[Rfam]
RNA sequence: GGGGUUAUAGCUCAGGGGUAGAGCAUUUGACUGUCAAUCAAGAGGUCUUUGGUUCAAAUCCAGGUGCCCCUG
Number, nucleotide and partner (000 for none) at each position: 001g071002g070003g069004g068005u000006u066007a065008u000009a000010g024011c023012u022013c021014a000015g000016g000017g000018g000019u000020a000021g013022a012023g011024c010025a000026u042027u041028u040029g039030a038031c000032u000033g000034u000035c000036a000037a000038u030039c029040a028041a027042g026043a000044g000045g000046u000047c000048u064049u063050u062051g061052g060053u000054u000055c000056a000057a000058a000059u000060c052061c051062a050063g049064g048065u007066g006067c000068c004069c003070c002071u001072g000
A member of the RNA family "tRNA" from Myotis myotis, 72 nucleotides long.
Gene Ontology term of the family: triplet codon-amino acid adaptor activity.
The family's consensus secondary structure is taken from published work.
It is annotated as a transfer RNA.
About the family: Transfer RNA (tRNA) molecules are approximately 80 nucleotides in length.